[Rfam]
RNA sequence: AUGUUGCACAGGCUGUGGUGUUAGGCCUAGAAAAUAGUAAAUAAAAGAACCUGCCUCACCAGCUAGUUUUUUU
Numbered sequence: 001a002u003g004u005u006g007c008a009c010a011g012g013c014u015g016u017g018g019u020g021u022u023a024g025g026c027c028u029a030g031a032a033a034a035u036a037g038u039a040a041a042u043a044a045a046a047g048a049a050c051c052u053g054c055c056u057c058a059c060c061a062g063c064u065a066g067u068u069u070u071u072u073u
Stems, first nucleotide, its partner, number of pairs: 003019005043073008053063002
This 73-nucleotide RNA sequence from Panagrolaimus superbus belongs to the Rfam family "OrzO-P RNA antitoxin family". The source organism's lineage runs through Eukaryota, Metazoa, Chromadorea, Tylenchina and Panagrolaimus. Rfam classes the family as an antitoxin RNA.